[Rfam]
RNA: Glycine riboswitch aptamer
RNA sequence: AUGAAAAGUUUGCGAGAGAUCCUAUACGGACGCCGAAGAAGCAAAUCACACCGGUCAAGUGUGACGAAACUUUCAGGCAAAAGGACCAAACUUGGACA
Numbered sequence: 001a002u003g004a005a006a007a008g009u010u011u012g013c014g015a016g017a018g019a020u021c022c023u024a025u026a027c028g029g030a031c032g033c034c035g036a037a038g039a040a041g042c043a044a045a046u047c048a049c050a051c052c053g054g055u056c057a058a059g060u061g062u063g064a065c066g067a068a069a070c071u072u073u074c075a076g077g078c079a080a081a082a083g084g085a086c087c088a089a090a091c092u093u094g095g096a097c098a
Base pairs, nucleotide, nucleotide: 006093007092008091009090010089011088012087020030021029022028032078033077034076035074036073039072040071041070046064047063048062049061050060051059